[Rfam]
Description
6C RNA: a 76-nucleotide RNA sequence from Rhodococcus jostii. It is one of the family's seed sequences. The literature on the family includes a 2007 paper in Nucleic Acids Res by Weinberg et al., "Identification of 22 candidate structured RNAs in bacteria using the CMfinder comparative genomics pipeline". The family's consensus secondary structure is taken from published work. Rfam classes the family as a cis-regulatory element. Gene Ontology term of the family: sporulation.
RNA sequence: CGAUGUUCAGCCCGACCCCCCGGGGCUGAACACUGACGACCCUCGCCUCCUCCCCCCCUGGCGAGGGUCGUCCUCU
Numbered sequence: 001c002g003a004u005g006u007u008c009a010g011c012c013c014g015a016c017c018c019c020c021c022g023g024g025g026c027u028g029a030a031c032a033c034u035g036a037c038g039a040c041c042c043u044c045g046c047c048u049c050c051u052c053c054c055c056c057c058c059u060g061g062c063g064a065g066g067g068u069c070g071u072c073c074u075c076u
Base pairs, nucleotide, nucleotide: 002034004032005031006030007029008028009027010026011025012024013023035072036071037070038069039068040067041066042065043064044063045062046061047060